[Rfam]
RNA sequence: GAGGCGGUAUCCUACGAGGAACUGCACUCGGAACGCACGACCGCAAGCAAGUACGCAAAUCGACGAAAUUCUGCUCUGAGCCUGAAAGGACCGAGACAGAAAG
Numbered sequence: 001g002a003g004g005c006g007g008u009a010u011c012c013u014a015c016g017a018g019g020a021a022c023u024g025c026a027c028u029c030g031g032a033a034c035g036c037a038c039g040a041c042c043g044c045a046a047g048c049a050a051g052u053a054c055g056c057a058a059a060u061c062g063a064c065g066a067a068a069u070u071c072u073g074c075u076c077u078g079a080g081c082c083u084g085a086a087a088g089g090a091c092c093g094a095g096a097c098a099g100a101a102a103g
Base pairs, nucleotide, nucleotide: 001029002028003027004025005024006023007022008021010020011019071099072098073097074095075094076093078091081089082088

The record is a 103-nucleotide RNA sequence from Paenibacillus flagellatus, which matches "pan motif" in Rfam. It scores 46 bits against the family's covariance model.